pemK RNA: a 52-nucleotide RNA.

[Rfam]
RNA sequence: AUAAUGAUACUUCGAGCUGGCGGAGAACCCGGCAGAGGUGAAAUUCCUAUGA
Numbered sequence: 001a002u003a004a005u006g007a008u009a010c011u012u013c014g015a016g017c018u019g020g021c022g023g024a025g026a027a028c029c030c031g032g033c034a035g036a037g038g039u040g041a042a043a044u045u046c047c048u049a050u051g052a
Base pairs, nucleotide, nucleotide: 012049017035018034019033021031022030023029036048037047038046

The base pairs follow the family's consensus structure, which is taken from published work. By type it is a cis-regulatory element.